[Rfam]
RNA sequence: CCCAGGGCGCCCGCUCUGGGCUAUCAUCCAGCGGCCCUUCAGGCCG
Numbered sequence: 001c002c003c004a005g006g007g008c009g010c011c012c013g014c015u016c017u018g019g020g021c022u023a024u025c026a027u028c029c030a031g032c033g034g035c036c037c038u039u040c041a042g043g044c045c046g
Base pairs, nucleotide, nucleotide: 001020002019003018004017005016006015007014008013033045034044035043036042

Rfam assigns this 46-nucleotide RNA sequence from Tannerella sp. oral taxon 808 to the family "Acido-Lenti-1 RNA". Rfam classes the family as a small RNA.